[Rfam]
RNA sequence: AAGACCUUUAAAGACAGUCCUGUGAGGCUGAAAAGGAAACGGCUCAUAUUUUCGUAUGUGUAUCAUACCCUUUUUCUGCCCUCACGCAGGAAAAGGGUUUUUUAU
Numbered sequence: 001a002a003g004a005c006c007u008u009u010a011a012a013g014a015c016a017g018u019c020c021u022g023u024g025a026g027g028c029u030g031a032a033a034a035g036g037a038a039a040c041g042g043c044u045c046a047u048a049u050u051u052u053c054g055u056a057u058g059u060g061u062a063u064c065a066u067a068c069c070c071u072u073u074u075u076c077u078g079c080c081c082u083c084a085c086g087c088a089g090g091a092a093a094a095g096g097g098u099u100u101u102u103u104a105u
Stems, first nucleotide, its partner, number of pairs: 005036005015030005042061002045058005065100001067098012
Rfam assigns this 105-nucleotide RNA sequence from Thalassobacillus cyri to the family "PyrR binding site". A search with the family's covariance model found it, with a score of 60 bits. By type it is a cis-regulatory element. On this family, see Bonner et al., Nucleic Acids Res 2001: "Molecular recognition of pyr mRNA by the Bacillus subtilis attenuation regulatory protein PyrR". Pairs were carried over by alignment from the consensus structure, which is taken from published work.